RNA: MIR1120/MIR1122 microRNA precursor family
RNA sequence: GUACUCCCACUGUCCCAAAAUAUAAGAACGUUUUUGAUACUAAUAUAGUGUUCAAAACGUUCUUAUAUUAUGGGACGGAGGGAGUAG
Number, nucleotide and partner (000 for none) at each position: 001g000002u000003a085004c084005u083006c000007c081008c080009a000010c078011u077012g000013u075014c074015c073016c072017a071018a000019a069020a068021u067022a066023u065024a064025a063026g062027a061028a060029c059030g058031u057032u056033u055034u054035u000036g052037a051038u050039a049040c048041u047042a000043a000044u000045a000046u000047a041048g040049u039050g038051u037052u036053c000054a034055a033056a032057a031058c030059g029060u028061u027062c026063u025064u024065a023066u022067a021068u020069u019070a000071u017072g016073g015074g014075a013076c000077g011078g010079a000080g008081g007082g000083a005084g004085u003086a000087g000